[Rfam]
RNA sequence: CUUAUACACUAGGGGUGCAUGUUUUAUGCUGAGAGGUUAAUUCCGACCCUUUGAACCUGUUGGUUAAUGCUAGCGUAGGGAAGUGGGAAGAUACCUAU
Numbered sequence: 001c002u003u004a005u006a007c008a009c010u011a012g013g014g015g016u017g018c019a020u021g022u023u024u025u026a027u028g029c030u031g032a033g034a035g036g037u038u039a040a041u042u043c044c045g046a047c048c049c050u051u052u053g054a055a056c057c058u059g060u061u062g063g064u065u066a067a068u069g070c071u072a073g074c075g076u077a078g079g080g081a082a083g084u085g086g087g088a089a090g091a092u093a094c095c096u097a098u
Base pairs, nucleotide, nucleotide: 007085008084009083010082011050012049013048014047017029018028019027020026021025036043056079057078058077059076060073061072062071063070
TPP riboswitch aptamer (THI element): a 98-nucleotide sequence from Macrococcoides bohemicum.
It scores 63 bits against the family's covariance model.